A member of the RNA family "FMN riboswitch aptamer (RFN element)" from Eubacteriaceae bacterium CHKCI004, 148 nucleotides long. Lineage of the source: Bacteria > Bacillota > Clostridia > Eubacteriales > Eubacteriaceae.

RNA sequence: AAUCUGUUUCAGGGCGAGGUGAGAUUCCUCACUGGUGGUGACAGGCCAAGACCUUAAGUCCACGAGCCAAAAGCGUGCGUAUGCGCGCUGAGGUUGAAUGGGUUAGAAUCCCAUACCAACGGUAUAGUCCGGAUGAAAGAAACGAUAG
Numbered sequence: 001a002a003u004c005u006g007u008u009u010c011a012g013g014g015c016g017a018g019g020u021g022a023g024a025u026u027c028c029u030c031a032c033u034g035g036u037g038g039u040g041a042c043a044g045g046c047c048a049a050g051a052c053c054u055u056a057a058g059u060c061c062a063c064g065a066g067c068c069a070a071a072a073g074c075g076u077g078c079g080u081a082u083g084c085g086c087g088c089u090g091a092g093g094u095u096g097a098a099u100g101g102g103u104u105a106g107a108a109u110c111c112c113a114u115a116c117c118a119a120c121g122g123u124a125u126a127g128u129c130c131g132g133a134u135g136a137a138a139g140a141a142a143c144g145a146u147a148g
Stems, first nucleotide, its partner, number of pairs: 005144006017029003031128002033118002035063004058116002066094003098114005120131003